[Rfam]
RNA sequence: ACAGGAAGGAAGCAUGGUAGUGUGCACGGAGACGAACAUGGUCUGCAUGUCUGCUCGCCUUGAUGCCCUCGGGCUUUGAUCUUGCGGGCCUGGAUUCGACCUACACGC
Numbered sequence: 001a002c003a004g005g006a007a008g009g010a011a012g013c014a015u016g017g018u019a020g021u022g023u024g025c026a027c028g029g030a031g032a033c034g035a036a037c038a039u040g041g042u043c044u045g046c047a048u049g050u051c052u053g054c055u056c057g058c059c060u061u062g063a064u065g066c067c068c069u070c071g072g073g074c075u076u077u078g079a080u081c082u083u084g085c086g087g088g089c090c091u092g093g094a095u096u097c098g099a100c101c102u103a104c105a106c107g108c
Stems, first nucleotide, its partner, number of pairs: 012025004040090004049080003053074003

This 108-nucleotide RNA from Sorghum bicolor belongs to the Rfam family "Small nucleolar RNA snoR100".
The base pairs follow the family's consensus structure, which was predicted with WAR.
A search with the family's covariance model found it, with a score of 90 bits.
NCBI's taxonomy places the organism under Eukaryota, Embryophyta, Magnoliopsida, commelinids, Sorghum.
For this family Rfam cites "Experimental RNomics: identification of 140 candidates for small non-messenger RNAs in the plant Arabidopsis thaliana" (Marker et al., Curr Biol, 2002).